[Rfam]
RNA sequence: AAUGGGGAAAUGGGGGCCAUAGCAGAAGCAUUCAUGUCACGACCCCCCAUCAGAUAAUACCUGGUAAUACCUGUGAAUUCUGCA
Dot-bracket structure: ............[[[[.[...(((((((...........)].]]]]....(((.((...........)).)))....)))))).
Numbered sequence: 001a002a003u004g005g006g007g008a009a010a011u012g013g014g015g016g017c018c019a020u021a022g023c024a025g026a027a028g029c030a031u032u033c034a035u036g037u038c039a040c041g042a043c044c045c046c047c048c049a050u051c052a053g054a055u056a057a058u059a060c061c062u063g064g065u066a067a068u069a070c071c072u073g074u075g076a077a078u079u080c081u082g083c084a
Stems, first nucleotide, its partner, number of pairs: 013046004018041001022083006028040001051073003055069002

A member of the RNA family "Mammalian CPEB3 ribozyme" from Alligator sinensis, 84 nucleotides long. Gene Ontology term of the family: RNA nuclease activity. About the family: The mammalian CPEB3 ribozyme is a self cleaving RNA located in the second intron of the CPEB3 gene which belongs to a family of genes regulating messenger RNA polyadenylation. This ribozyme is highly conserved and found only in mammals. The CPEB3 ribozyme is structurally and biochemically related to the human hepatitis delta virus (HDV) ribozyme and the HDV ribozyme is proposed to have arisen from the human transcriptome. There is currently only one other known self cleaving ribozyme in mammals, the CoTC motif. The literature on the family includes a 2006 paper in Science by Salehi-Ashtiani et al., "A genomewide search for ribozymes reveals an HDV-like sequence in the human CPEB3 gene". A search with the family's covariance model found it, with a score of 45 bits.